[Rfam]
Overview
A member of the RNA family "Alphaproteobacteria transfer-messenger RNA" from Sphingobium indicum, 356 nucleotides long. A search with the family's covariance model found it, with a score of 209 bits.
RNA sequence: CGGCUUGAAAAGGCGCAACUUUGCGCCCAUAUGGGUGGGGCCGGGUUCGCCCGGCUAUGGUGAUAAAUUGUGUCGUAUAAUAGACGCAGCGGACCCGGGGGCAGUACCCGGCGGUUCCACCACAUAUCCCGGUUGGCGCAAAUGCUGGACGGGAUGUCUGACGGGGCCGAACUAGGAUCGACGUGUGUUCAAAGGCGAUGUUUUUACCCGGCCCGUGUAAGCCGUUAAACUGUGCAAAACUCAUAAGUGCCAACGAUAACGAAGCACUCGCCAUUGCAGCGUGAAUGAGGGCCUAACGGCCUGACCUCACUCUAAAAUAGCGCGGUUGAACCCACCGGGCAACAGAAGGGAAUUCA
Numbered sequence: 001c002g003g004c005u006u007g008a009a010a011a012g013g014c015g016c017a018a019c020u021u022u023g024c025g026c027c028c029a030u031a032u033g034g035g036u037g038g039g040g041c042c043g044g045g046u047u048c049g050c051c052c053g054g055c056u057a058u059g060g061u062g063a064u065a066a067a068u069u070g071u072g073u074c075g076u077a078u079a080a081u082a083g084a085c086g087c088a089g090c091g092g093a094c095c096c097g098g099g100g101g102c103a104g105u106a107c108c109c110g111g112c113g114g115u116u117c118c119a120c121c122a123c124a125u126a127u128c129c130c131g132g133u134u135g136g137c138g139c140a141a142a143u144g145c146u147g148g149a150c151g152g153g154a155u156g157u158c159u160g161a162c163g164g165g166g167c168c169g170a171a172c173u174a175g176g177a178u179c180g181a182c183g184u185g186u187g188u189u190c191a192a193a194g195g196c197g198a199u200g201u202u203u204u205u206a207c208c209c210g211g212c213c214c215g216u217g218u219a220a221g222c223c224g225u226u227a228a229a230c231u232g233u234g235c236a237a238a239a240c241u242c243a244u245a246a247g248u249g250c251c252a253a254c255g256a257u258a259a260c261g262a263a264g265c266a267c268u269c270g271c272c273a274u275u276g277c278a279g280c281g282u283g284a285a286u287g288a289g290g291g292c293c294u295a296a297c298g299g300c301c302u303g304a305c306c307u308c309a310c311u312c313u314a315a316a317a318u319a320g321c322g323c324g325g326u327u328g329a330a331c332c333c334a335c336c337g338g339g340c341a342a343c344a345g346a347a348g349g350g351a352a353u354u355c356a
Base pairs, nucleotide, nucleotide: 040055041054042053043052044051059208060207061206062205063204070201071200072199073198074197075196076195085187086186087185089184090183091182095111096110097109098108099107112169113168114167115166116165117164118163209224210223211222212221215235216234220231323337324336325335326334328355329354330353333350
The family is grouped with related families in Rfam's "tRNA clan". Rfam classes the family as a non-coding RNA gene.